[Rfam]
RNA sequence: AGGCCUGAAGAGAGAAGCAGGGUCUGAUCUGUAGCCUGUGUGGCAGCUUUUGAUCAGCACUUGCCUCUCUCUUUCUUUCCG
Numbered sequence: 001a002g003g004c005c006u007g008a009a010g011a012g013a014g015a016a017g018c019a020g021g022g023u024c025u026g027a028u029c030u031g032u033a034g035c036c037u038g039u040g041u042g043g044c045a046g047c048u049u050u051u052g053a054u055c056a057g058c059a060c061u062u063g064c065c066u067c068u069c070u071c072u073u074u075c076u077u078u079c080c081g
Base pairs, nucleotide, nucleotide: 008073009072010071011070012069013068014067015066017064018063019062020061024057025056026055027054028053029052033048034047035046
Record summary:
The record is an 81-nucleotide RNA sequence from Cnephaeus nilssonii, which matches "mir-574 microRNA precursor family" in Rfam. Pairs were carried over by alignment from the consensus structure, which was predicted with RNAalifold. The match comes from Rfam's covariance-model search (86 bits). For this family Rfam cites "Patterns of known and novel small RNAs in human cervical cancer" (Lui et al., Cancer Res, 2007). Lineage of the source: Eukaryota > Dipnotetrapodomorpha > Theria > Eutheria > Cnephaeus.